RNA sequence: CACACUUGUGCUUGUUUUUGUUCAGUUUUUUGGACAAAGACUCAGACAAGUACAGAAAAUGAAUCCUCUUUUGCAACCCGAAACUCAUGGCUCAGUAUGAGUUGUUUUUUUUUUUUUUUCAAUGUUUAUU
Numbered sequence: 001c002a003c004a005c006u007u008g009u010g011c012u013u014g015u016u017u018u019u020g021u022u023c024a025g026u027u028u029u030u031u032g033g034a035c036a037a038a039g040a041c042u043c044a045g046a047c048a049a050g051u052a053c054a055g056a057a058a059a060u061g062a063a064u065c066c067u068c069u070u071u072u073g074c075a076a077c078c079c080g081a082a083a084c085u086c087a088u089g090g091c092u093c094a095g096u097a098u099g100a101g102u103u104g105u106u107u108u109u110u111u112u113u114u115u116u117u118u119u120c121a122a123u124g125u126u127u128a129u130u
Base pairs, nucleotide, nucleotide: 004051005050006049007048008047009046014041015040016039017038018037019036020035021034026032063127066124069121073117080108081107082103083102084101085100086099087098088097

Background:
Small nucleolar RNA SNORA40: a 130-nucleotide RNA sequence from Lynx canadensis. A search with the family's covariance model found it, with a score of 55 bits. It is annotated as an H/ACA-box small nucleolar RNA. Taxonomically the source falls in Lynx (Eukaryota, Eumetazoa, Amniota, Feliformia). A reference for the family is Ofengand and Bakin (1997), "Mapping to nucleotide resolution of pseudouridine residues in large subunit ribosomal RNAs from representative eukaryotes, prokaryotes, archaebacteria, mitochondria and chloroplasts", J Mol Biol. The snoRNA ACA 40 belongs to the H/ACA family of snoRNAs and guides the pseudouridylation of 28S rRNA subunit at position U4565. NB This family has a high threshold value to exclude a large number of closely related sequences that do not appear to have conserved H and ACA boxes, and may be pseudogenes.